[Rfam]
RNA sequence: GUAACAAUGUUGCGUGAGUCGCUCUGGAUAAGAGCGUCUGCUGAAUGCCUGUAA
Number, nucleotide and partner (000 for none) at each position: 001g000002u000003a000004a000005c000006a000007a000008u000009g000010u000011u000012g000013c043014g041015u040016g039017a000018g000019u000020c036021g035022c034023u033024c032025u031026g000027g000028a000029u000030a000031a025032g024033a023034g022035c021036g020037u000038c000039u016040g015041c014042u000043g013044a000045a000046u000047g000048c000049c000050u000051g000052u000053a000054a000
Rfam assigns this 54-nucleotide sequence from Anguilla anguilla to the family "UnaL2 LINE 3' element". It is annotated as a cis-regulatory element. The source organism's lineage runs through Eukaryota, Opisthokonta, Eumetazoa, Elopomorpha and Anguilla.